[Rfam]
RNA sequence: UUGAAGGAUUUUAAGACUUCAACUUGCAGACUUAAAGAAUUUGAAGACUUCCGCUUGCAGAAAAGAAUUAGAAGACUUCAAGU
Numbered sequence: 001u002u003g004a005a006g007g008a009u010u011u012u013a014a015g016a017c018u019u020c021a022a023c024u025u026g027c028a029g030a031c032u033u034a035a036a037g038a039a040u041u042u043g044a045a046g047a048c049u050u051c052c053g054c055u056u057g058c059a060g061a062a063a064a065g066a067a068u069u070a071g072a073a074g075a076c077u078u079c080a081a082g083u
Stems, first nucleotide, its partner, number of pairs: 001081006009073006017065002025059004032053001035050003
A member of the RNA family "MIR8024 microRNA precursor family" from Solanum lycopersicum, 83 nucleotides long. The match comes from Rfam's covariance-model search (65 bits). Rfam links the family to the GO terms miRNA-mediated post-transcriptional gene silencing and RISC complex.